[Rfam]
Source information:
The family of this 135-nucleotide RNA from Nothoprocta perdicaria is "Small nucleolar RNA SNORA14". Rfam classes the family as an H/ACA-box small nucleolar RNA. ACA14 is a member of the H/ACA class of snoRNA that guide the sites of modification of uridines to pseudouridines. The family's consensus secondary structure was predicted with RNAfold. Its family is annotated with nucleolus and RNA processing in the Gene Ontology. It scores 80 bits against the family's covariance model.
RNA sequence: GGGCAUUCGUAACCCUCCUGGCAGCUUCGCUCCUAGCACCCAGGAUAAGAAUGAAUGCCAGAGAAAACUGUUGAUUUAUCCAAAAUGUGGAGCUCUUAUCCUGUGGCUCUUCAUUAUUUCAUGUCUUCAACAUUA
Numbered sequence: 001g002g003g004c005a006u007u008c009g010u011a012a013c014c015c016u017c018c019u020g021g022c023a024g025c026u027u028c029g030c031u032c033c034u035a036g037c038a039c040c041c042a043g044g045a046u047a048a049g050a051a052u053g054a055a056u057g058c059c060a061g062a063g064a065a066a067a068c069u070g071u072u073g074a075u076u077u078a079u080c081c082a083a084a085a086u087g088u089g090g091a092g093c094u095c096u097u098a099u100c101c102u103g104u105g106g107c108u109c110u111u112c113a114u115u116a117u118u119u120c121a122u123g124u125c126u127u128c129a130a131c132a133u134u135a
Stems, first nucleotide, its partner, number of pairs: 003058004010048001016045006024037002063134002069129002073125002084115004089110002092107002
Dot-bracket structure: ..((((...(.....((((((..((..........))..))))))..)......))))....((....((..((.........((((.((.((............)).)).))))........))..))...)).
The source organism's lineage runs through Eukaryota, Archosauria, Dinosauria, Saurischia and Nothoprocta. The family has 18 seed sequences and 848 matches in Rfam 15.1.